[Rfam]
RNA sequence: GCAUCAACCCCGGGCGAUCGCGACUGAUGGAACCCCAACAACCACAGCGUUGCUGGUGGCCAGCGGUCGAGGAAAGUCCGGACUCCGCUUCAAGAGUGACGGUGGUUGCUAACGGCAACCCAGGGUGACCUGCGGGCUAGUGCCACAGAAAACAGACCGCCCCCACCGCCCCAACGGCGGGAGGGGGUAAGGGUGAAACGGUGCGGUAAGAGCGCACCAGCAGCCCAGGUGACUGGGCUGGCUAGGUAAACCCCACCGGGAGCAAUGCCAAGACGCGACACGUUGAACGUGACGCGUGCGCGCACACCGCAAGCCCUCACCGGCUUGCGGGGCUGGGCACUCGCCAGCAACGCGCGCAGGUAGGCAGCUUGAGGGCACCAGCAAUGGUGCCCCUAGAUGGAUGAUCGCCGACGCCACCAACGUGUGGCCGAACAGAAUCCGGCUUAUAGGGGCUGUGCAGUC
Number, nucleotide and partner (000 for none) at each position: 001g458002c457003a456004u000005c455006a454007a000008c452009c451010c450011c449012g447013g409014g408015c407016g406017a405018u404019c403020g000021c069022g068023a067024c066025u065026g064027a000028u062029g061030g000031a000032a000033c000034c000035c000036c000037a000038a000039c000040a000041a000042c000043c000044a000045c000046a000047g000048c000049g000050u000051u000052g000053c000054u000055g000056g000057u000058g000059g000060c000061c029062a028063g000064c026065g025066g024067u023068c022069g021070a000071g000072g000073a000074a445075a444076g443077u000078c442079c441080g440081g439082a438083c262084u261085c260086c259087g000088c000089u000090u000091c000092a000093a000094g000095a000096g341097u000098g000099a000100c258101g257102g256103u255104g254105g119106u118107u117108g116109c115110u000111a000112a000113c000114g000115g109116c108117a107118a106119c105120c134121c132122a131123g130124g129125g000126u000127g000128a000129c124130c123131u122132g121133c000134g120135g253136g252137c000138u000139a000140g251141u250142g247143c246144c245145a000146c000147a000148g000149a000150a000151a000152a000153c000154a000155g000156a000157c192158c191159g188160c187161c186162c185163c184164c183165a000166c181167c180168g000169c000170c000171c000172c000173a000174a000175c000176g000177g000178c000179g000180g167181g166182a000183g164184g163185g162186g161187g160188u159189a000190a000191g158192g157193g000194u000195g000196a000197a000198a000199c000200g218201g217202u216203g215204c214205g213206g000207u000208a000209a000210g000211a000212g000213c205214g204215c203216a202217c201218c200219a000220g242221c240222a239223g238224c237225c236226c235227a234228g233229g000230u000231g000232a000233c228234u227235g226236g225237g224238c223239u222240g221241g000242c220243u000244a000245g144246g143247u142248a000249a000250a141251c140252c136253c135254c104255a103256c102257c101258g100259g086260g085261a084262g083263c000264a000265a000266u366267g365268c364269c363270a000271a000272g000273a000274c000275g000276c000277g000278a000279c000280a000281c000282g000283u000284u000285g000286a000287a000288c000289g000290u000291g000292a000293c000294g000295c000296g000297u000298g000299c000300g000301c000302g000303c000304a000305c000306a000307c000308c000309g000310c000311a000312a000313g000314c000315c000316c000317u000318c000319a000320c000321c000322g000323g000324c000325u000326u000327g000328c000329g000330g000331g000332g000333c347334u346335g345336g344337g000338c000339a000340c000341u096342c000343g000344c336345c335346a334347g333348c000349a000350a000351c000352g000353c000354g000355c000356g000357c000358a000359g000360g000361u000362a000363g269364g268365c267366a266367g000368c000369u000370u000371g000372a000373g392374g391375g390376c389377a388378c387379c386380a385381g000382c000383a000384a000385u380386g379387g378388u377389g376390c375391c374392c373393c000394u000395a000396g000397a000398u000399g000400g000401a000402u000403g019404a018405u017406c016407g015408c014409c013410g000411a000412c000413g000414c000415c000416a000417c000418c000419a000420a000421c000422g000423u000424g000425u000426g000427g000428c000429c000430g000431a000432a000433c000434a000435g000436a000437a000438u082439c081440c080441g079442g078443c076444u075445u074446a000447u012448a000449g011450g010451g009452g008453c000454u006455g005456u003457g002458c001459a000460g000461u000462c000

Shown here is a 462-nucleotide RNA sequence from Corynebacterium aquilae, a member of the family "Bacterial RNase P class A".
Lineage of the source: Bacteria > Actinomycetes > Mycobacteriales > Corynebacterium > Corynebacterium aquilae.
By type it is a ribozyme.